[Rfam]
RNA: Small nucleolar RNA SNORA29
Organism: Myotis lucifugus
RNA sequence: UUUCCCAUUUGACUACCAUAUUUUCUCCUAAUAGAUUUUAGUGGCUAUGCUUAUGGGACAGAUUAGAAUUGCCAUGAUCUAAAGAGGGAGGAUUUAUUUGUGACCUCCUCUUAUAUUAAAUGACUAAACAGAAAGAA
Numbered sequence: 001u002u003u004c005c006c007a008u009u010u011g012a013c014u015a016c017c018a019u020a021u022u023u024u025c026u027c028c029u030a031a032u033a034g035a036u037u038u039u040a041g042u043g044g045c046u047a048u049g050c051u052u053a054u055g056g057g058a059c060a061g062a063u064u065a066g067a068a069u070u071g072c073c074a075u076g077a078u079c080u081a082a083a084g085a086g087g088g089a090g091g092a093u094u095u096a097u098u099u100g101u102g103a104c105c106u107c108c109u110c111u112u113a114u115a116u117u118a119a120a121u122g123a124c125u126a127a128a129c130a131g132a133a134a135g136a137a
Stems, first nucleotide, its partner, number of pairs: 004057004016044004071124001073122002089112004
Dot-bracket structure: ...((((........((((.....................)))).........)))).............(.((..............((((................))))........)).).............